[Rfam]
This 110-nucleotide RNA sequence from Segatella baroniae belongs to the Rfam family "engA RNA".

RNA sequence: GUCCUGAAUGGUAUUGAGGACAAACCCUCUCGCAAGAGAGAGCCGGGAAAGAAGGUCACAUCUCGGCAAACAGAGUAUUAACUAGGGUGCGGUGACCUCUCCCUAACUCU
Numbered sequence: 001g002u003c004c005u006g007a008a009u010g011g012u013a014u015u016g017a018g019g020a021c022a023a024a025c026c027c028u029c030u031c032g033c034a035a036g037a038g039a040g041a042g043c044c045g046g047g048a049a050a051g052a053a054g055g056u057c058a059c060a061u062c063u064c065g066g067c068a069a070a071c072a073g074a075g076u077a078u079u080a081a082c083u084a085g086g087g088u089g090c091g092g093u094g095a096c097c098u099c100u101c102c103c104u105a106a107c108u109c110u
Stems, first nucleotide, its partner, number of pairs: 001021005027040005042067007083105005089099001